[Rfam]
RNA sequence: UCCUGUGAUGAUUUUCCUGAUGUGUGAGAUGUAGAUAGCUCCAAGUCCCUGUUCGUCAGGGAGAACAUACUUGGAGUCGUACAUUCAAAUGAGAUUUCAGGGCAUUCUCUGAGGU
Numbered sequence: 001u002c003c004u005g006u007g008a009u010g011a012u013u014u015u016c017c018u019g020a021u022g023u024g025u026g027a028g029a030u031g032u033a034g035a036u037a038g039c040u041c042c043a044a045g046u047c048c049c050u051g052u053u054c055g056u057c058a059g060g061g062a063g064a065a066c067a068u069a070c071u072u073g074g075a076g077u078c079g080u081a082c083a084u085u086c087a088a089a090u091g092a093g094a095u096u097u098c099a100g101g102g103c104a105u106u107c108u109c110u111g112a113g114g115u
Stems, first nucleotide, its partner, number of pairs: 002114002047061005